RNA sequence: GGUCGAUGAUGACUAGUAAAAGGUCUGAUGGCACAGGGGAAUUACACGCCACUACCCUCUGGGCUCCCAGCAGUCCUUCUUCUGUCACGCCAUAGUAGAGCUAUGACUGAGAAAGAGAUUGCUGACAGUUUGGGAUCAAUUCAGGUCCAGUUCCCCACAGUGAAGGGGUUUUGGUGCUGGAUGUCAUCCAACAGAACUGGUUACGAGGAGCUUGUGGUAGUGGGGUGUCUCCAUUGGUUGUGUAUGAUCUAAAGUUUUCAAGCUGAGACC
Numbered sequence: 001g002g003u004c005g006a007u008g009a010u011g012a013c014u015a016g017u018a019a020a021a022g023g024u025c026u027g028a029u030g031g032c033a034c035a036g037g038g039g040a041a042u043u044a045c046a047c048g049c050c051a052c053u054a055c056c057c058u059c060u061g062g063g064c065u066c067c068c069a070g071c072a073g074u075c076c077u078u079c080u081u082c083u084g085u086c087a088c089g090c091c092a093u094a095g096u097a098g099a100g101c102u103a104u105g106a107c108u109g110a111g112a113a114a115g116a117g118a119u120u121g122c123u124g125a126c127a128g129u130u131u132g133g134g135a136u137c138a139a140u141u142c143a144g145g146u147c148c149a150g151u152u153c154c155c156c157a158c159a160g161u162g163a164a165g166g167g168g169u170u171u172u173g174g175u176g177c178u179g180g181a182u183g184u185c186a187u188c189c190a191a192c193a194g195a196a197c198u199g200g201u202u203a204c205g206a207g208g209a210g211c212u213u214g215u216g217g218u219a220g221u222g223g224g225g226u227g228u229c230u231c232c233a234u235u236g237g238u239u240g241u242g243u244a245u246g247a248u249c250u251a252a253a254g255u256u257u258u259c260a261a262g263c264u265g266a267g268a269c270c
Stems, first nucleotide, its partner, number of pairs: 001270004035250003042247002046226002049223005064210004068124007081110002084107004089102001090100001132189001134188003138184001147174004153168004

Shown here is a 270-nucleotide RNA from Alectura lathami, a member of the family "Small Cajal body specific RNA 6". Rfam classes the family as a small Cajal body RNA. On this family, see Darzacq et al., EMBO J 2002: "Cajal body-specific small nuclear RNAs: a novel class of 2'-O-methylation and pseudouridylation guide RNAs". The organism belongs to Alectura, within Eukaryota. U88 is small Cajal body specific RNA (scaRNA). scaRNAs are a novel class of small nuclear RNAs which localise to the Cajal bodies. The family's consensus secondary structure is taken from published work.